[Rfam]
Nucleotides: 247
Base pairs, nucleotide, nucleotide: 002245003244004243005242006241007240008239023224024223025222027220029218031216032215033214034213035212036211037210038209039208040207041206042205043204045202046201047200
Number, partner (000 for none) and nucleotide at each position: 001000c002245c003244c004243u005242u006241a007240a008239c009000u010000a011000u012000u013000a014000a015000a016000a017000g018000u019000u020000u021000c022000g023224u024223u025222u026000u027220g028000g029218u030000c031216c032215c033214u034213u035212a036211a037210c038209u039208u040207a041206u042205u043204u044000u045202u046201u047200g048000g049000u050000u051000u052000c053000a054000u055000u056000u057000u058000g059000g060000u061000c062000c063000c064000u065000u066000a067000a068000c069000u070000c071000u072000u073000c074000c075000u076000c077000c078000g079000u080000c081000a082000a083000c084000c085000a086000c087000u088000u089000u090000g091000g092000u093000c094000c095000u096000u097000u098000a099000u100000g101000u102000u103000a104000g105000a106000u107000g108000a109000c110000u111000g112000u113000a114000u115000u116000a117000g118000a119000g120000u121000u122000a123000a124000g125000g126000g127000a128000c129000c130000a131000a132000a133000a134000c135000g136000a137000a138000a139000c140000c141000a142000a143000a144000a145000a146000a147000u148000a149000a150000g151000u152000u153000a154000a155000g156000a157000g158000a159000c160000c161000a162000a163000a164000a165000c166000a167000a168000a169000a170000c171000u172000u173000u174000u175000a176000a177000u178000a179000g180000u181000u182000a183000a184000g185000g186000g187000a188000c189000c190000a191000a192000a193000a194000c195000g196000a197000a198000a199000c200047c201046a202045a203000a204043a205042a206041g207040u208039a209038a210037g211036u212035u213034a214033a215032g216031g217000g218029a219000a220027c221000a222025a223024a224023a225000c226000g227000a228000a229000a230000c231000u232000u233000u234000u235000a236000a237000u238000a239008g240007u241006u242005a243004a244003g245002g246000g247000a

Rfam assigns this 247-nucleotide sequence from Medicago truncatula to the family "MIR2655 microRNA precursor family". The source organism's lineage runs through Eukaryota, Mesangiospermae, Pentapetalae, fabids and Medicago. The family's consensus secondary structure was predicted with RNAalifold. It scores 187 bits against the family's covariance model.